[Rfam]
Nucleotides: 081
Base pairs, nucleotide, nucleotide: 004078005077006076010072013068014067015066017064018063019062021060022059023058024057026055027054029053031051032050033049
Number, partner (000 for none) and nucleotide at each position: 001000g002000c003000c004078c005077c006076c007000c008000a009000g010072c011000u012000a013068a014067g015066g016000u017064g018063c019062a020000u021060c022059u023058a024057g025000u026055g027054u028000a029053g030000u031051u032050a033049g034000u035000g036000a037000a038000c039000u040000u041000u042000c043000c044000a045000a046000u047000u048000u049033c050032u051031a052000c053029u054027g055026c056000c057024c058023u059022a060021g061000u062019u063018g064017c065000u066015c067014c068013u069000u070000c071000u072010g073000g074000c075000u076006g077005g078004g079000g080000g081000c
The family of this 81-nucleotide sequence from Gadus morhua is "mir-17 microRNA precursor family". The base pairs follow the family's consensus structure, which was predicted with RNAalifold. A reference for the family is Lagos-Quintana et al. (2001), "Identification of novel genes coding for small expressed RNAs", Science. Gene Ontology terms of the family: RISC complex and miRNA-mediated post-transcriptional gene silencing. It scores 51 bits against the family's covariance model.